[Rfam]
RNA sequence: UGGCCCUGCCGUCACUGGCGCGGAUGGGUCACCAUCGGGGAGCGGCACACCGAAUCGCGCGCGCAUCGCCCGCCUGGGUGCGCCGC
Numbered sequence: 001u002g003g004c005c006c007u008g009c010c011g012u013c014a015c016u017g018g019c020g021c022g023g024a025u026g027g028g029u030c031a032c033c034a035u036c037g038g039g040g041a042g043c044g045g046c047a048c049a050c051c052g053a054a055u056c057g058c059g060c061g062c063g064c065a066u067c068g069c070c071c072g073c074c075u076g077g078g079u080g081c082g083c084c085g086c
Stems, first nucleotide, its partner, number of pairs: 003051001007047006015039002017074004024035004063081005
A member of the RNA family "ZMP/ZTP riboswitch aptamer (pfl RNA motif)" from Ruaniaceae bacterium KH17, 86 nucleotides long.
It scores 45 bits against the family's covariance model.
The organism belongs to Ruaniaceae, within Bacteria.
The base pairs follow the family's consensus structure, which is taken from published work.